[Rfam]
RNA sequence: UGUCGUUCUCAGGGCGGGGUGUAAUUCCCCACCGGCGGUGAAAGCCCGCGAGCGCCGUUCUCCGGAACGGGUCAGCAGACACCGGUGAAAUUCCGGGGCCGACGGUUAUAGUCCGGAUGAAAGAGAAAGCAG
Numbered sequence: 001u002g003u004c005g006u007u008c009u010c011a012g013g014g015c016g017g018g019g020u021g022u023a024a025u026u027c028c029c030c031a032c033c034g035g036c037g038g039u040g041a042a043a044g045c046c047c048g049c050g051a052g053c054g055c056c057g058u059u060c061u062c063c064g065g066a067a068c069g070g071g072u073c074a075g076c077a078g079a080c081a082c083c084g085g086u087g088a089a090a091u092u093c094c095g096g097g098g099c100c101g102a103c104g105g106u107u108a109u110a111g112u113c114c115g116g117a118u119g120a121a122a123g124a125g126a127a128a129g130c131a132g
Stems, first nucleotide, its partner, number of pairs: 004129001006127005017029003031112002033101002035049004044099002052076002080097001082096004103115003
This 132-nucleotide RNA sequence from Roseibium suaedae belongs to the Rfam family "FMN riboswitch aptamer (RFN element)". The base pairs follow the family's consensus structure, which is taken from published work. Gene Ontology term of the family: FMN binding.